[Rfam]
RNA: Small Cajal body specific RNA 8
RNA sequence: UGCGAGACUGAUACACAACUAAGGCUAAAUCUGCUAUAUCUGUCACAUGUUCUCCCUACCUUCUGAUGACUGGGAUGAAUUAAAGGAAAUUGUAACAGACAGAUAUGGAGCACACAAUA
Numbered sequence: 001u002g003c004g005a006g007a008c009u010g011a012u013a014c015a016c017a018a019c020u021a022a023g024g025c026u027a028a029a030u031c032u033g034c035u036a037u038a039u040c041u042g043u044c045a046c047a048u049g050u051u052c053u054c055c056c057u058a059c060c061u062u063c064u065g066a067u068g069a070c071u072g073g074g075a076u077g078a079a080u081u082a083a084a085g086g087a088a089a090u091u092g093u094a095a096c097a098g099a100c101a102g103a104u105a106u107g108g109a110g111c112a113c114a115c116a117a118u119a
Base pairs, nucleotide, nucleotide: 002056004054005053006052007051015043016042017041023035024034025033059110061108062107070098071097072096075093076092077091078090